RNA sequence: GAGCGGCCUCCGCCGAGUCGGCGUGCCCUGCGGGGCCGCGGAGCCGGGGACCCAACCGAACCAUGGGGUGAAUCGACCCGAGGCCGUGACGGGCCGGGUCGUAGGGCACACCUUCCGACGCGAACGCCCGAACCCGUCAGCUAACUCGGUAGGCGGAGUACGGAAGGAGCA
Numbered sequence: 001g002a003g004c005g006g007c008c009u010c011c012g013c014c015g016a017g018u019c020g021g022c023g024u025g026c027c028c029u030g031c032g033g034g035g036c037c038g039c040g041g042a043g044c045c046g047g048g049g050a051c052c053c054a055a056c057c058g059a060a061c062c063a064u065g066g067g068g069u070g071a072a073u074c075g076a077c078c079c080g081a082g083g084c085c086g087u088g089a090c091g092g093g094c095c096g097g098g099u100c101g102u103a104g105g106g107c108a109c110a111c112c113u114u115c116c117g118a119c120g121c122g123a124a125c126g127c128c129c130g131a132a133c134c135c136g137u138c139a140g141c142u143a144a145c146u147c148g149g150u151a152g153g154c155g156g157a158g159u160a161c162g163g164a165a166g167g168a169g170c171a
Stems, first nucleotide, its partner, number of pairs: 011155004018042002043150006053065002066135003074101007104129004
RNA: c-di-AMP riboswitch aptamer (ydaO/yuaA leader)